[Rfam]
RNA sequence: UGACCCACAAUGCCUUCAACGGUAUCUGCACGGAUGUGCGUUGCUGGAUGUGACGUGAGCGGACGUCGUAUUCCUUCGCGCGGUCGGUUCGCCGAAGCCCUCGUGACCGAGGGGCAUCCCUGCAGGGGCCGUUCAUCGUGGCGUCAGUUCAGUAUUUGUUUUAUGCAGUCCAUUACUGAUGCACGGUACCCACAAUUGGUCUCCUCGCGCUAACCCCGUAGCGUGUGGUUUUUAGCGGGCCCCAAGGCCCGCUUUUUUUC
Numbered sequence: 001u002g003a004c005c006c007a008c009a010a011u012g013c014c015u016u017c018a019a020c021g022g023u024a025u026c027u028g029c030a031c032g033g034a035u036g037u038g039c040g041u042u043g044c045u046g047g048a049u050g051u052g053a054c055g056u057g058a059g060c061g062g063a064c065g066u067c068g069u070a071u072u073c074c075u076u077c078g079c080g081c082g083g084u085c086g087g088u089u090c091g092c093c094g095a096a097g098c099c100c101u102c103g104u105g106a107c108c109g110a111g112g113g114g115c116a117u118c119c120c121u122g123c124a125g126g127g128g129c130c131g132u133u134c135a136u137c138g139u140g141g142c143g144u145c146a147g148u149u150c151a152g153u154a155u156u157u158g159u160u161u162u163a164u165g166c167a168g169u170c171c172a173u174u175a176c177u178g179a180u181g182c183a184c185g186g187u188a189c190c191c192a193c194a195a196u197u198g199g200u201c202u203c204c205u206c207g208c209g210c211u212a213a214c215c216c217c218g219u220a221g222c223g224u225g226u227g228g229u230u231u232u233u234a235g236c237g238g239g240c241c242c243c244a245a246g247g248c249c250c251g252c253u254u255u256u257u258u259u260c
Stems, first nucleotide, its partner, number of pairs: 005199003018133006025126006032119006038081003042078001046073006053066004084095004098113006135187005203228002206225007234253008
Shown here is a 260-nucleotide RNA from Pararobbsia alpina, a member of the family "Burkholderia sRNA Bp1_Cand871_SIPHT".
A search with the family's covariance model found it, with a score of 171 bits.
The source organism's lineage runs through Bacteria, Betaproteobacteria, Burkholderiales, Burkholderiaceae and Pararobbsia.
Rfam classes the family as a small RNA.
Its family is annotated with bacterial biofilm matrix in the Gene Ontology.